A member of the RNA family "mir-544 microRNA precursor family" from Tupaia belangeri, 97 nucleotides long. Its family is annotated with RISC complex and miRNA-mediated post-transcriptional gene silencing in the Gene Ontology. The family's consensus secondary structure was predicted with RNAalifold.

RNA sequence: AUCACCCAGGAAUCUUGUUAAAAUGCAGAUUCUGAUUCAGUAGGGCUGGCACGGGGCCCAGAUUCUGCAUUUCUAACAAGCUUCCAGGUGAUUAGAA
Dot-bracket structure: ..(((...(((..((((((((((.(((((.(((..........................))).))))).))).))))))).)))...))).......